RNA: ZMP/ZTP riboswitch aptamer (pfl RNA motif)
Organism: Antrihabitans stalagmiti
RNA sequence: ACACGAGGCCGUGACUGGCGCUGAGGUGGACAACCACCGGGAAGCGGGCUCACCGUCAUCGGUUACGCCGUGCGCCUGGGCAAUUCGU
Numbered sequence: 001a002c003a004c005g006a007g008g009c010c011g012u013g014a015c016u017g018g019c020g021c022u023g024a025g026g027u028g029g030a031c032a033a034c035c036a037c038c039g040g041g042a043a044g045c046g047g048g049c050u051c052a053c054c055g056u057c058a059u060c061g062g063u064u065a066c067g068c069c070g071u072g073c074g075c076c077u078g079g080g081c082a083a084u085u086c087g088u
Base pairs, nucleotide, nucleotide: 005051006050007049009047010046011045012044015041016040017076018075019074020073021072026037027036028035029034067081068080069079